[Rfam]
RNA sequence: CCGCAUUCCUAACCCUCCUGGUGGCCUCGGUGCUGGCCGCCAGGAUAAGAACGAAUGCCAGAGGAAAACGGGGAUCCAUCCAAAACGUGGGGCUCCCCGCCCGUGGCUCCCCGUUAUUUCACGUCCUCGACACUG
Numbered sequence: 001c002c003g004c005a006u007u008c009c010u011a012a013c014c015c016u017c018c019u020g021g022u023g024g025c026c027u028c029g030g031u032g033c034u035g036g037c038c039g040c041c042a043g044g045a046u047a048a049g050a051a052c053g054a055a056u057g058c059c060a061g062a063g064g065a066a067a068a069c070g071g072g073g074a075u076c077c078a079u080c081c082a083a084a085a086c087g088u089g090g091g092g093c094u095c096c097c098c099g100c101c102c103g104u105g106g107c108u109c110c111c112c113g114u115u116a117u118u119u120c121a122c123g124u125c126c127u128c129g130a131c132a133c134u135g
Base pairs, nucleotide, nucleotide: 003058004057005056006055007051009049010048016045017044018043019042020041021040023038024037025036063134064133069129070128071127072126073125074124084115085114086113087112089110090109092107093106098103

Record summary:
The family of this 135-nucleotide sequence from Anser cygnoides is "Small nucleolar RNA SNORA14". Rfam 15.1 lists 848 matches to the family in 633 species. Lineage of the source: Eukaryota > Eumetazoa > Coelurosauria > Anseriformes > Anser. The base pairs follow the family's consensus structure, which was predicted with RNAfold. ACA14 is a member of the H/ACA class of snoRNA that guide the sites of modification of uridines to pseudouridines. It is annotated as an H/ACA-box small nucleolar RNA.